[Rfam]
RNA: Z30 small nucleolar RNA
RNA sequence: CUGCACUGAUGAGCCUAGAUGUGGCUGAUCUGGUAUUGCUGCCCUCCGGGGAACAGCUCUGACCAGGGAGUGAUCUCAACUUAAUCUUCUCUCUGAGCAG
Numbered sequence: 001c002u003g004c005a006c007u008g009a010u011g012a013g014c015c016u017a018g019a020u021g022u023g024g025c026u027g028a029u030c031u032g033g034u035a036u037u038g039c040u041g042c043c044c045u046c047c048g049g050g051g052a053a054c055a056g057c058u059c060u061g062a063c064c065a066g067g068g069a070g071u072g073a074u075c076u077c078a079a080c081u082u083a084a085u086c087u088u089c090u091c092u093c094u095g096a097g098c099a100g
Base pairs, nucleotide, nucleotide: 003098004097038057039056040055041054